Background:
The record is a 96-nucleotide sequence from Equus caballus, which matches "mir-9058 microRNA precursor family" in Rfam. The source organism's lineage runs through Eukaryota, Bilateria, Dipnotetrapodomorpha, Equidae and Equus. A search with the family's covariance model found it, with a score of 84 bits. Rfam 15.1 lists 2,090 matches to the family in 3 species.
[Rfam]
RNA sequence: GUGACUGCCAGAUGGGUGCUCUCUACUAGUGCUGUGCAGAGGCUUUUGCUGAGGCUGUUGUGAGACUGUAGGGUUUCCCCUAGACUACAGAGCCAG
Numbered sequence: 001g002u003g004a005c006u007g008c009c010a011g012a013u014g015g016g017u018g019c020u021c022u023c024u025a026c027u028a029g030u031g032c033u034g035u036g037c038a039g040a041g042g043c044u045u046u047u048g049c050u051g052a053g054g055c056u057g058u059u060g061u062g063a064g065a066c067u068g069u070a071g072g073g074u075u076u077c078c079c080c081u082a083g084a085c086u087a088c089a090g091a092g093c094c095a096g
Stems, first nucleotide, its partner, number of pairs: 002095002005092002007085001009083001010081002014079003018076001021073006028067002032064002036061004041056006
Dot-bracket structure: .((.(((.(((..(((.(..((((((.((..((..((((.((((((....)))))).)))).)).))))))))..)))))).).).....)).)).